[Rfam]
RNA sequence: GCCGAUAUGUUGCCUUUAUCUGCAUUUGCACCUGCACUUUACUUGGUUUCUCUGCAACAUUAUUCAGCACAUGUCACUUGUGGAGGAAGAUAUAUAUAUAUAUAUAUAUAUAUUAUAUUAUAUUAUAUUAUAUAUAUGUGUGGAAUAGAGAAACUGAGAACGAGGUGCAGGUGCAUCUGCAGGUGAAAGUCAUAUCGGA
Numbered sequence: 001g002c003c004g005a006u007a008u009g010u011u012g013c014c015u016u017u018a019u020c021u022g023c024a025u026u027u028g029c030a031c032c033u034g035c036a037c038u039u040u041a042c043u044u045g046g047u048u049u050c051u052c053u054g055c056a057a058c059a060u061u062a063u064u065c066a067g068c069a070c071a072u073g074u075c076a077c078u079u080g081u082g083g084a085g086g087a088a089g090a091u092a093u094a095u096a097u098a099u100a101u102a103u104a105u106a107u108a109u110a111u112a113u114u115a116u117a118u119u120a121u122a123u124u125a126u127a128u129u130a131u132a133u134a135u136a137u138g139u140g141u142g143g144a145a146u147a148g149a150g151a152a153a154c155u156g157a158g159a160a161c162g163a164g165g166u167g168c169a170g171g172u173g174c175a176u177c178u179g180c181a182g183g184u185g186a187a188a189g190u191c192a193u194a195u196c197g198g199a
Stems, first nucleotide, its partner, number of pairs: 002198008012190002015187010027175013
A member of the RNA family "MIR530 microRNA precursor family" from Phaseolus vulgaris, 199 nucleotides long. A search with the family's covariance model found it, with a score of 86 bits. For this family Rfam cites "Stress-responsive microRNAs in Populus" (Lu et al., Plant J, 2008).